[Rfam]
RNA: c-di-GMP-I riboswitch aptamer
Organism: Emergencia timonensis
Nucleotides: 083
Base pairs, nucleotide, nucleotide: 012037013036018031019030020029021028022027040077041076042075043074047073048072049069050068051067
Number, partner (000 for none) and nucleotide at each position: 001000u002000u003000g004000a005000a006000g007000a008000u009000u010000g011000g012037g013036u014000a015000a016000a017000c018031c019030u020029g021028u022027c023000g024000a025000a026000a027022g028021g029020c030019a031018g032000c033000g034000a035000c036013a037012c038000a039000a040077a041076g042075c043074u044000a045000u046000a047073g048072g049069g050068c051067c052000u053000u054000c055000c056000c057000u058000u059000u060000u061000a062000c063000g064000g065000a066000u067051g068050g069049c070000a071000g072048c073047c074043a075042g076041u077040u078000g079000c080000a081000c082000a083000g